[Rfam]
RNA sequence: AAAAAGGGUUUUUGCCAUGCAUGGCACACGUGGAGCAGUGGGGUUAUCCUUGGUCAUUUUUCAUGCAAAAUCUACAUCAAGAUUUUGGAAGCACACUUUUUGUUCUUUGGGCAGCUGGUGAUAUUGGUCCUGGUUUCCUU
Numbered sequence: 001a002a003a004a005a006g007g008g009u010u011u012u013u014g015c016c017a018u019g020c021a022u023g024g025c026a027c028a029c030g031u032g033g034a035g036c037a038g039u040g041g042g043g044u045u046a047u048c049c050u051u052g053g054u055c056a057u058u059u060u061u062c063a064u065g066c067a068a069a070a071u072c073u074a075c076a077u078c079a080a081g082a083u084u085u086u087g088g089a090a091g092c093a094c095a096c097u098u099u100u101u102g103u104u105c106u107u108u109g110g111g112c113a114g115c116u117g118g119u120g121a122u123a124u125u126g127g128u129c130c131u132g133g134u135u136u137c138c139u140u
Stems, first nucleotide, its partner, number of pairs: 008092005013026005027065002030062001032060003066087007109138003114134005120129003

The family of this 140-nucleotide sequence from Sarcophilus harrisii is "U11 spliceosomal RNA". The match comes from Rfam's covariance-model search (61 bits). Gene Ontology terms of the family: mRNA 5'-splice site recognition, pre-mRNA 5'-splice site binding and U11 snRNP. Taxonomically the source falls in Sarcophilus (Eukaryota, Metazoa, Chordata, Theria). Clan: U1 clan. By type it is a spliceosomal small nuclear RNA.